Rfam assigns this 84-nucleotide RNA from Schaalia hyovaginalis to the family "ZMP/ZTP riboswitch aptamer (pfl RNA motif)". Gene Ontology terms of the family: regulation of purine nucleotide biosynthetic process and one-carbon metabolic process. A search with the family's covariance model found it, with a score of 57 bits. The base pairs follow the family's consensus structure, which is taken from published work.
RNA sequence: UGGGGGAGUCGUGACUGGCGAACAGGUGGGAAACCACCGGGGAGCGAUGAACUGGCAUCGAGGCCGCCCGCCUGGGCCCAGAUG
Numbered sequence: 001u002g003g004g005g006g007a008g009u010c011g012u013g014a015c016u017g018g019c020g021a022a023c024a025g026g027u028g029g030g031a032a033a034c035c036a037c038c039g040g041g042g043a044g045c046g047a048u049g050a051a052c053u054g055g056c057a058u059c060g061a062g063g064c065c066g067c068c069c070g071c072c073u074g075g076g077c078c079c080a081g082a083u084g
Stems, first nucleotide, its partner, number of pairs: 003053002008048005015041002017072004026037004062078004